A member of the RNA family "Group II catalytic intron D1-D4-3" from Thiohalocapsa sp. PB-PSB1, 186 nucleotides long.
The base pairs follow the family's consensus structure.
Rfam's curators write: Group II introns are found in rRNA, tRNA and mRNA of organelles in fungi, plants and protists, and also in mRNA in bacteria.
The match comes from Rfam's covariance-model search (108 bits).
[Rfam]
RNA sequence: GUUGUGGCGACAAUGCUUCGGGAGGAAGCCGCCUGGAAAUCCGGGUACCGCGAACGUACGGGGUGACGAACAGGAAUCGGGUAUAAGGCGCAUACGUCGGGACGAGUCUGCACAACAAGAUAAAGUCCUCUAUCUAUUGCUAGGCGUAUCCGCAAACCCGGCACUCACGUACAGAAAGAGAUGUGU
Numbered sequence: 001g002u003u004g005u006g007g008c009g010a011c012a013a014u015g016c017u018u019c020g021g022g023a024g025g026a027a028g029c030c031g032c033c034u035g036g037a038a039a040u041c042c043g044g045g046u047a048c049c050g051c052g053a054a055c056g057u058a059c060g061g062g063g064u065g066a067c068g069a070a071c072a073g074g075a076a077u078c079g080g081g082u083a084u085a086a087g088g089c090g091c092a093u094a095c096g097u098c099g100g101g102a103c104g105a106g107u108c109u110g111c112a113c114a115a116c117a118a119g120a121u122a123a124a125g126u127c128c129u130c131u132a133u134c135u136a137u138u139g140c141u142a143g144g145c146g147u148a149u150c151c152g153c154a155a156a157c158c159c160g161g162c163a164c165u166c167a168c169g170u171a172c173a174g175a176a177a178g179a180g181a182u183g184u185g186u
Stems, first nucleotide, its partner, number of pairs: 001016002005012002043186001045184003051178001056172005061166005077161006088153003092149007100128004106121004